[Rfam]
The record is a 45-nucleotide RNA sequence from Antrostomus carolinensis, which matches "Histone 3' UTR stem-loop" in Rfam. A search with the family's covariance model found it, with a score of 38 bits. It is annotated as a cis-regulatory element.

RNA sequence: CUAAAGGCUCUUUUAAGAGCCACCACAUUGCACAAAAGAGUUGUG
Numbered sequence: 001c002u003a004a005a006g007g008c009u010c011u012u013u014u015a016a017g018a019g020c021c022a023c024c025a026c027a028u029u030g031c032a033c034a035a036a037a038g039a040g041u042u043g044u045g
Stems, first nucleotide, its partner, number of pairs: 006021006